[Rfam]
RNA sequence: GCGGCAUCAUUGAUGUAAAAAAACUCUUUUGUUAUCCUUGCACUUUGAUAUCCCAUGAAGAAAGUUUGGGGAAUUUUUGUCUGAGAUGCCA
Numbered sequence: 001g002c003g004g005c006a007u008c009a010u011u012g013a014u015g016u017a018a019a020a021a022a023a024c025u026c027u028u029u030u031g032u033u034a035u036c037c038u039u040g041c042a043c044u045u046u047g048a049u050a051u052c053c054c055a056u057g058a059a060g061a062a063a064g065u066u067u068g069g070g071g072a073a074u075u076u077u078u079g080u081c082u083g084a085g086a087u088g089c090c091a
Base pairs, nucleotide, nucleotide: 003090004089005088006087007086008085
Rfam assigns this 91-nucleotide RNA from Ensete ventricosum to the family "Small nucleolar RNA snoR26". It scores 66 bits against the family's covariance model. The organism belongs to Ensete, within Eukaryota. The literature on the family includes a 2001 paper in RNA by Brown et al., "Multiple snoRNA gene clusters from Arabidopsis". Its family is annotated with RNA processing and nucleolus in the Gene Ontology.